[Rfam]
RNA sequence: AGUGGUUACAAGUUUGAGGCCGUAGCAGAAGCGCUCACACCGCAGCCUGUCAGAUUCCACUAAAUCUGAAUCCUGCU
Numbered sequence: 001a002g003u004g005g006u007u008a009c010a011a012g013u014u015u016g017a018g019g020c021c022g023u024a025g026c027a028g029a030a031g032c033g034c035u036c037a038c039a040c041c042g043c044a045g046c047c048u049g050u051c052a053g054a055u056u057c058c059a060c061u062a063a064a065u066c067u068g069a070a071u072c073c074u075g076c077u
Stems, first nucleotide, its partner, number of pairs: 018047003024077005030071001031043003051068006
RNA: Mammalian CPEB3 ribozyme
Organism: Alligator mississippiensis